A member of the RNA family "c-di-AMP riboswitch aptamer (ydaO/yuaA leader)" from Streptomyces sp. 846.5, 153 nucleotides long. Pairs were carried over by alignment from the consensus structure. Taxonomically the source falls in Streptomyces (Bacteria, Actinomycetes, Kitasatosporales, Streptomycetaceae).
[Rfam]
RNA sequence: GAACUCGAACUUCAGGAUUGGGCAGGAGCGGGGGACCCAGGUAAGUUGCCGCAGUUCGCAAGGCUGCGGCUCGGGGUGAAGGCGCGUCAGCGCCCGGGCUACCUCACGGCCCGAACCCGACAGCUCACCUCGCAGGCGUCGGAGAGGGUACCU
Numbered sequence: 001g002a003a004c005u006c007g008a009a010c011u012u013c014a015g016g017a018u019u020g021g022g023c024a025g026g027a028g029c030g031g032g033g034g035a036c037c038c039a040g041g042u043a044a045g046u047u048g049c050c051g052c053a054g055u056u057c058g059c060a061a062g063g064c065u066g067c068g069g070c071u072c073g074g075g076g077u078g079a080a081g082g083c084g085c086g087u088c089a090g091c092g093c094c095c096g097g098g099c100u101a102c103c104u105c106a107c108g109g110c111c112c113g114a115a116c117c118c119g120a121c122a123g124c125u126c127a128c129c130u131c132g133c134a135g136g137c138g139u140c141g142g143a144g145a146g147g148g149u150a151c152c153u
Stems, first nucleotide, its partner, number of pairs: 005026002028133006038073001074118003082093004096112004